[Rfam]
RNA sequence: AUAAAAAAAUGCCCUGCUGAACCGUUCAGCAGGGCCCUUCUAUGUCCAAAUCAGACAGAAGGCAAAGGGAGAGGAGAAACUGGAGAAAGAACUCAUGGGGAAUAUAAGCUUUCUCCGUGA
Numbered sequence: 001a002u003a004a005a006a007a008a009a010u011g012c013c014c015u016g017c018u019g020a021a022c023c024g025u026u027c028a029g030c031a032g033g034g035c036c037c038u039u040c041u042a043u044g045u046c047c048a049a050a051u052c053a054g055a056c057a058g059a060a061g062g063c064a065a066a067g068g069g070a071g072a073g074g075a076g077a078a079a080c081u082g083g084a085g086a087a088a089g090a091a092c093u094c095a096u097g098g099g100g101a102a103u104a105u106a107a108g109c110u111u112u113c114u115c116c117g118u119g120a
Stems, first nucleotide, its partner, number of pairs: 012034009035069005044056003081117004087112003092108002095105001